[Rfam]
RNA sequence: UUACUGGACGCUUUAGUUAUUGAACUGUUUUGUCACUCUCUGUCAAAAAAACAAUUUUUGCUGUGUCAGAGAGGGACAAAACAGUUCAAUAGAUAAAGCGUCCAGUAAC
Numbered sequence: 001u002u003a004c005u006g007g008a009c010g011c012u013u014u015a016g017u018u019a020u021u022g023a024a025c026u027g028u029u030u031u032g033u034c035a036c037u038c039u040c041u042g043u044c045a046a047a048a049a050a051a052c053a054a055u056u057u058u059u060g061c062u063g064u065g066u067c068a069g070a071g072a073g074g075g076a077c078a079a080a081a082c083a084g085u086u087c088a089a090u091a092g093a094u095a096a097a098g099c100g101u102c103c104a105g106u107a108a109c
Base pairs, nucleotide, nucleotide: 001108002107003106004105005104006103011098012097013096014095015094017092018091019090020089021088022087023086024085025084026083027082028081029070030069031068032067034065035064050059051058053057
This 109-nucleotide sequence from Plutella xylostella belongs to the Rfam family "mir-8517 microRNA precursor family". A search with the family's covariance model found it, with a score of 92 bits. Lineage of the source: Eukaryota > Aparaglossata > Glossata > Yponomeutoidea > Plutella.